[Rfam]
RNA sequence: UUCGUGCGGCGGCACGGCUCUGCGAUUCCCCAAUGUUGCUCACCUCUGCGCCAUUAUUCUACGCGGUAGUUCGAGUGUCAAGCCGUGCUCUGAACGAUUGGACGUCUUAGCACCCAAUUGUCGCCUUGCAUUGCGCACAGCGGCAGGGUCGGUGGUUCAUACAUCU
Numbered sequence: 001u002u003c004g005u006g007c008g009g010c011g012g013c014a015c016g017g018c019u020c021u022g023c024g025a026u027u028c029c030c031c032a033a034u035g036u037u038g039c040u041c042a043c044c045u046c047u048g049c050g051c052c053a054u055u056a057u058u059c060u061a062c063g064c065g066g067u068a069g070u071u072c073g074a075g076u077g078u079c080a081a082g083c084c085g086u087g088c089u090c091u092g093a094a095c096g097a098u099u100g101g102a103c104g105u106c107u108u109a110g111c112a113c114c115c116a117a118u119u120g121u122c123g124c125c126u127u128g129c130a131u132u133g134c135g136c137a138c139a140g141c142g143g144c145a146g147g148g149u150c151g152g153u154g155g156u157u158c159a160u161a162c163a164u165c166u
Stems, first nucleotide, its partner, number of pairs: 021087004038076004046066004099159005118146007